[Rfam]
RNA sequence: GACUAACCCAAUCACUGGACAAUGAUUGACAUUCGUGUUUAUCCUGUUCGGUUAGUCCAGUCUAAGCCCUUCGAGGGCUACGUUUAGGGGAAGUGUUAAAGUUCAUACCUUAGGGUAUUUUCCAGCCCCAAGCUCUAUAAGUUCUAGGUUAAACAGGUUUAGGUGAUUACGGAUAGCCCAGUGCUUAGAACAAAGUACCGCCCUUAAACAUUGACGAGGAAAACUUUAC
Numbered sequence: 001g002a003c004u005a006a007c008c009c010a011a012u013c014a015c016u017g018g019a020c021a022a023u024g025a026u027u028g029a030c031a032u033u034c035g036u037g038u039u040u041a042u043c044c045u046g047u048u049c050g051g052u053u054a055g056u057c058c059a060g061u062c063u064a065a066g067c068c069c070u071u072c073g074a075g076g077g078c079u080a081c082g083u084u085u086a087g088g089g090g091a092a093g094u095g096u097u098a099a100a101g102u103u104c105a106u107a108c109c110u111u112a113g114g115g116u117a118u119u120u121u122c123c124a125g126c127c128c129c130a131a132g133c134u135c136u137a138u139a140a141g142u143u144c145u146a147g148g149u150u151a152a153a154c155a156g157g158u159u160u161a162g163g164u165g166a167u168u169a170c171g172g173a174u175a176g177c178c179c180a181g182u183g184c185u186u187a188g189a190a191c192a193a194a195g196u197a198c199c200g201c202c203c204u205u206a207a208a209c210a211u212u213g214a215c216g217a218g219g220a221a222a223a224c225u226u227u228a229c
Base pairs, nucleotide, nucleotide: 001057002056003055004054005053006052007051008050010033011032012029013028034046035045037043060215061214062213064211065079066078067077068076069075082209083208084207085206086205087204088203089202090201105138106137109132110131111130113128114127115126116125117225118223119222120221121220122219123218141191142190143189144188145187146186147185148184149183153182154181156179157178159176160175161174

Rfam assigns this 229-nucleotide RNA from Halothece sp. PCC 7418 to the family "HNH endonuclease-associated RNA and ORF (HEARO) RNA". The base pairs follow the family's consensus structure, which is taken from published work. Rfam classes the family as a non-coding RNA gene. The source organism's lineage runs through Bacteria, Cyanobacteriota, Cyanophyceae, Halothecacae and Halothece.